[Rfam]
RNA sequence: UUUCAAUUCUUGAACCAUAAUCAUACAAUCCAUUCUUCACUUUGUCAGCGUACUUUAUUGAUGCUGUGCUGAUCAUUGUCGGGUGGUACAAGU
Numbered sequence: 001u002u003u004c005a006a007u008u009c010u011u012g013a014a015c016c017a018u019a020a021u022c023a024u025a026c027a028a029u030c031c032a033u034u035c036u037u038c039a040c041u042u043u044g045u046c047a048g049c050g051u052a053c054u055u056u057a058u059u060g061a062u063g064c065u066g067u068g069c070u071g072a073u074c075a076u077u078g079u080c081g082g083g084u085g086g087u088a089c090a091a092g093u
Stems, first nucleotide, its partner, number of pairs: 030086005044073008
RNA: Small nucleolar RNA snoR99